The family of this 127-nucleotide RNA from Marmota monax is "Small nucleolar RNA SNORA70". From the family's description: snoRNA U70 seems to be exclusive to mammals and is a member of the H/ACA class of snoRNA which contain H (ANANNA) and ACA box motifs. H/ACA box snoRNAs are involved in the conversion of uridines to pseudouridines (5-ribosyluracil) a constituent of structural RNAs (transfer, ribosomal, small nuclear, and small nucleolar). Its family is annotated with RNA processing and nucleolus in the Gene Ontology. By type it is an H/ACA-box small nucleolar RNA. The source organism's lineage runs through Eukaryota, Deuterostomia, Tetrapoda, Marmotini and Marmota.
RNA sequence: CUAUAGUCAAUGAGACAAAUCAGGUUAUUUAACUUGUGGUGGCCCUGUGUGCAAUGGCUGCAUACAGUAGACUCUUUGGUAGCAUACACAGCUUUAAUGGGUAUCCUAAGGGACCUUAGAGACAGUC
Numbered sequence: 001c002u003a004u005a006g007u008c009a010a011u012g013a014g015a016c017a018a019a020u021c022a023g024g025u026u027a028u029u030u031a032a033c034u035u036g037u038g039g040u041g042g043c044c045c046u047g048u049g050u051g052c053a054a055u056g057g058c059u060g061c062a063u064a065c066a067g068u069a070g071a072c073u074c075u076u077u078g079g080u081a082g083c084a085u086a087c088a089c090a091g092c093u094u095u096a097a098u099g100g101g102u103a104u105c106c107u108a109a110g111g112g113a114c115c116u117u118a119g120a121g122a123c124a125g126u127c
Base pairs, nucleotide, nucleotide: 002053004051005050019048020047025042026041027040028039078115079114080113085103086102087101089099090098